[Rfam]
RNA: Alphaproteobacterial sRNA BjrC1505
RNA sequence: CGUAUCCUUAACCGUGCAUUAGGGUUUCGGAGUCAUCACUGGGGCGAUCCAGACGGUCUGGAUGUCGAGUGGAUUUUCCGUCCACUCUGUUUGAUGCCUCCCUGACGACUCAUCCAAGCCGCCUCUCACGGGGCGGCUUUUUUCUU
Numbered sequence: 001c002g003u004a005u006c007c008u009u010a011a012c013c014g015u016g017c018a019u020u021a022g023g024g025u026u027u028c029g030g031a032g033u034c035a036u037c038a039c040u041g042g043g044g045c046g047a048u049c050c051a052g053a054c055g056g057u058c059u060g061g062a063u064g065u066c067g068a069g070u071g072g073a074u075u076u077u078c079c080g081u082c083c084a085c086u087c088u089g090u091u092u093g094a095u096g097c098c099u100c101c102c103u104g105a106c107g108a109c110u111c112a113u114c115c116a117a118g119c120c121g122c123c124u125c126u127c128a129c130g131g132g133g134c135g136g137c138u139u140u141u142u143u144c145u146u
Stems, first nucleotide, its partner, number of pairs: 001043001003041002005014001016036001020035001022033001025030001047063004067087006093106001095104002116139009